[Rfam]
RNA sequence: CUUGACCGACCCCAGCCGCGCCGGCCCCCCGGCCCGGUCCUGGCCGUAGGUGGCCAGCACCGCCUGCGCCUC
Numbered sequence: 001c002u003u004g005a006c007c008g009a010c011c012c013c014a015g016c017c018g019c020g021c022c023g024g025c026c027c028c029c030c031g032g033c034c035c036g037g038u039c040c041u042g043g044c045c046g047u048a049g050g051u052g053g054c055c056a057g058c059a060c061c062g063c064c065u066g067c068g069c070c071u072c
Base pairs, nucleotide, nucleotide: 015025016024017023032067033066035062036061040057041056042055044053045052046051

The family of this 72-nucleotide RNA from Actinoplanes derwentensis is "ASpks TB sRNA".
The family's RNA type in Rfam is antisense RNA.
Lineage of the source: Bacteria > Bacillati > Actinomycetota > Micromonosporaceae > Actinoplanes.